[Rfam]
RNA sequence: AUCCAGCCCCCUAAGUACUGCUCCUUUUGCAGUUUUGGCCUCCGAGAUCAAUUUUGACCAAGUCAAUCCUGACGUGGCCGCCACGUGUGUAAUUUUUUUUAAUUAUAAAAUAAAAAUAAUAAUUACACACGUGACGGCCACGUCAGCAAUGACUUGGUCAAAAUUGGUUUAGGGGGCCAAAACUACAAAAGGGGCAGUAGAUAGAGGGCUGAAU
Numbered sequence: 001a002u003c004c005a006g007c008c009c010c011c012u013a014a015g016u017a018c019u020g021c022u023c024c025u026u027u028u029g030c031a032g033u034u035u036u037g038g039c040c041u042c043c044g045a046g047a048u049c050a051a052u053u054u055u056g057a058c059c060a061a062g063u064c065a066a067u068c069c070u071g072a073c074g075u076g077g078c079c080g081c082c083a084c085g086u087g088u089g090u091a092a093u094u095u096u097u098u099u100u101a102a103u104u105a106u107a108a109a110a111u112a113a114a115a116a117u118a119a120u121a122a123u124u125a126c127a128c129a130c131g132u133g134a135c136g137g138c139c140a141c142g143u144c145a146g147c148a149a150u151g152a153c154u155u156g157g158u159c160a161a162a163a164u165u166g167g168u169u170u171a172g173g174g175g176g177c178c179a180a181a182a183c184u185a186c187a188a189a190a191g192g193g194g195c196a197g198u199a200g201a202u203a204g205a206g207g208g209c210u211g212a213a214u
Base pairs, nucleotide, nucleotide: 001214002213004211005210006209007208008207012203013202016199017198018197019196020195021194022193023192024191025190026189027188028187029186031184032183033182034181035180036179037178038177039176040175041174042173043172045170072143073142075140076139077138078137079136080135082133083132084131085130086129087128088127089126090125091124092123093122094121
MIR2619 microRNA precursor family: a 214-nucleotide RNA from Medicago truncatula.